[Rfam]
RNA sequence: GAGAGACCACAAGCGGGAUGAUGGAUCCGACCAUGAUGGUGUUGCAGAAACUUAUGUACGAGGUAGUUAUCCAGGGGUCGAAACACCAUCAUGGUCAGAUCCGUCAUCCCACUUAUGUUUUUUU
Number, nucleotide and partner (000 for none) at each position: 001g124002a123003g122004a121005g120006a119007c000008c117009a116010c000011a114012a113013g112014c000015g110016g109017g108018a107019u106020g105021a104022u103023g102024g101025a100026u099027c098028c000029g096030a095031c094032c093033a092034u091035g090036a089037u088038g087039g086040u085041g084042u083043u082044g000045c000046a000047g079048a078049a000050a000051c075052u074053u073054a000055u000056g000057u000058a067059c066060g000061a000062g000063g000064u000065a000066g059067u058068u000069a000070u000071c000072c000073a053074g052075g051076g000077g000078u048079c047080g000081a000082a043083a042084c041085a040086c039087c038088a037089u036090c035091a034092u033093g032094g031095u030096c029097a000098g027099a026100u025101c024102c023103g022104u021105c020106a019107u018108c017109c016110c015111a000112c013113u012114u011115a000116u009117g008118u000119u006120u005121u004122u003123u002124u001